[Rfam]
RNA: mir-124 microRNA precursor family
Organism: Lottia gigantea
RNA sequence: AUCUGUUAGUGUUCACUGUGAAAGCCUUGGUGUAAUUAAAACUAUUAAGGCACGCGGUGAAUGCCAAUAGGU
Numbered sequence: 001a002u003c004u005g006u007u008a009g010u011g012u013u014c015a016c017u018g019u020g021a022a023a024g025c026c027u028u029g030g031u032g033u034a035a036u037u038a039a040a041a042c043u044a045u046u047a048a049g050g051c052a053c054g055c056g057g058u059g060a061a062u063g064c065c066a067a068u069a070g071g072u
Base pairs, nucleotide, nucleotide: 003070004069005068006067009064010063011062012061013060014059015058016057018055019054020053025050026049027048028047029046030045031044032043